A member of the RNA family "Ribosomal protein L10 leader" from Lottiidibacillus patelloidae, 147 nucleotides long. Rfam's curators write: This family is a putative r-protein leader autoregulatory structure found in B. subtilis and other low-GC Gram-positive bacteria. Taxonomically the source falls in Lottiidibacillus (Bacteria, Bacilli, Caryophanales, Bacillaceae). Rfam classes the family as a cis-regulatory leader. It scores 80 bits against the family's covariance model. Pairs were carried over by alignment from the consensus structure, which was predicted with CMfinder.

RNA sequence: GAAAUAAUAUAUUUUAUACCGUAGACAGUAGGUGCAUGAAAAUGCUUAAUAUCCUUCCGAGGUGUUAUAACUAAUAGAUCGUUCGAUGUUUGAUCUGUUUGUAACGCUCCUAUGCCUGUCUACAUAGGAGCGUUUUUAAUUGCUCUU
Numbered sequence: 001g002a003a004a005u006a007a008u009a010u011a012u013u014u015u016a017u018a019c020c021g022u023a024g025a026c027a028g029u030a031g032g033u034g035c036a037u038g039a040a041a042a043u044g045c046u047u048a049a050u051a052u053c054c055u056u057c058c059g060a061g062g063u064g065u066u067a068u069a070a071c072u073a074a075u076a077g078a079u080c081g082u083u084c085g086a087u088g089u090u091u092g093a094u095c096u097g098u099u100u101g102u103a104a105c106g107c108u109c110c111u112a113u114g115c116c117u118g119u120c121u122a123c124a125u126a127g128g129a130g131c132g133u134u135u136u137u138a139a140u141u142g143c144u145c146u147u
Stems, first nucleotide, its partner, number of pairs: 028057001030055003034045003105132010